[Rfam]
A member of the RNA family "sraL Hfq binding RNA" from Tichodroma muraria, 141 nucleotides long. About the family: The SraL RNA ('sra' for small RNA), discovered in E. coli, and later in Salmonella Tiphimurium. Lineage of the source: Eukaryota > Teleostomi > Archosauria > Australaves > Tichodroma. By type it is a small RNA. Gene Ontology term of the family: negative regulation of gene expression. A search with the family's covariance model found it, with a score of 153 bits. The base pairs follow the family's consensus structure, which was predicted with RNAalifold.
RNA sequence: GUCAGUACAAACCGGAACCUCCUCCAUAAGCUCGACACGAGGAGUACUGAUGUCGGGGGAAACCCUCCCGUGAGCCAGCGGGAUAGAGAGAAAGACAAAGACCGGAAAAAACUAAAGCGCCCUUAGUGGCGCUUUAGUUCU
Dot-bracket structure: .(((((((.....((.....))........((((...))))..))))))).(((.(((....)))((((((......))))))..........))).............((((((((((((......))))))))))))..